[Rfam]
RNA sequence: GCCUCCUAUGCUUACCACAGGCUGUGUUCCUACACUGACCAUAUAGAAAGAGGAGGCAGAAUAAACCUAUCCUAUGUACACUUCAGCCUAGGCCACUGUGUCUGGUCUGUCUUGUAAAUGGGGAGACAUGU
Numbered sequence: 001g002c003c004u005c006c007u008a009u010g011c012u013u014a015c016c017a018c019a020g021g022c023u024g025u026g027u028u029c030c031u032a033c034a035c036u037g038a039c040c041a042u043a044u045a046g047a048a049a050g051a052g053g054a055g056g057c058a059g060a061a062u063a064a065a066c067c068u069a070u071c072c073u074a075u076g077u078a079c080a081c082u083u084c085a086g087c088c089u090a091g092g093c094c095a096c097u098g099u100g101u102c103u104g105g106u107c108u109g110u111c112u113u114g115u116a117a118a119u120g121g122g123g124a125g126a127c128a129u130g131u
Stems, first nucleotide, its partner, number of pairs: 001057007020039001024035004070123006084109003088105006